[Rfam]
RNA: TPP riboswitch aptamer (THI element)
RNA sequence: AAAUAAAAGCUGGGGAGCAAUUGCUGAGAGGAAGUUCGACUUCGACCCAUUUAACCUGACGGAUAAUGCCGGCGUAGGAAGUAUGUUUGAUUAUUUU
Numbered sequence: 001a002a003a004u005a006a007a008a009g010c011u012g013g014g015g016a017g018c019a020a021u022u023g024c025u026g027a028g029a030g031g032a033a034g035u036u037c038g039a040c041u042u043c044g045a046c047c048c049a050u051u052u053a054a055c056c057u058g059a060c061g062g063a064u065a066a067u068g069c070c071g072g073c074g075u076a077g078g079a080a081g082u083a084u085g086u087u088u089g090a091u092u093a094u095u096u097u
Stems, first nucleotide, its partner, number of pairs: 007084001009082002011049004017024002031043005055078004060071003